[Rfam]
RNA sequence: AUAAUAAGAAUAAGGGCGACCGUAAGGUCGCCCAUUUUGUUUCUUCAUCCAGCACUUUUGGUUUGGCCGCCGAUCAGCUGGUUUGUAAGAGCAGUUCUGGCGUUACGCAUAGCUGGCUGUUAGCUCUGAUUCCUUACUAUCCAACGACUAACAGUUUUUUGUAACCAAAACCCGGGCUUCCGCUUGGGUUUUUUUAU
Numbered sequence: 001a002u003a004a005u006a007a008g009a010a011u012a013a014g015g016g017c018g019a020c021c022g023u024a025a026g027g028u029c030g031c032c033c034a035u036u037u038u039g040u041u042u043c044u045u046c047a048u049c050c051a052g053c054a055c056u057u058u059u060g061g062u063u064u065g066g067c068c069g070c071c072g073a074u075c076a077g078c079u080g081g082u083u084u085g086u087a088a089g090a091g092c093a094g095u096u097c098u099g100g101c102g103u104u105a106c107g108c109a110u111a112g113c114u115g116g117c118u119g120u121u122a123g124c125u126c127u128g129a130u131u132c133c134u135u136a137c138u139a140u141c142c143a144a145c146g147a148c149u150a151a152c153a154g155u156u157u158u159u160u161g162u163a164a165c166c167a168a169a170a171c172c173c174g175g176g177c178u179u180c181c182g183c184u185u186g187g188g189u190u191u192u193u194u195u196a197u
Base pairs, nucleotide, nucleotide: 014033015032016031017030018029019028020027021026041094042093046085047083049081050080051079052078053077058073059072060071061070062069102165103164104163105162106161107160115156116155117154118153119152120151121150122149123148169190170189171188172187173186174185175184176183177182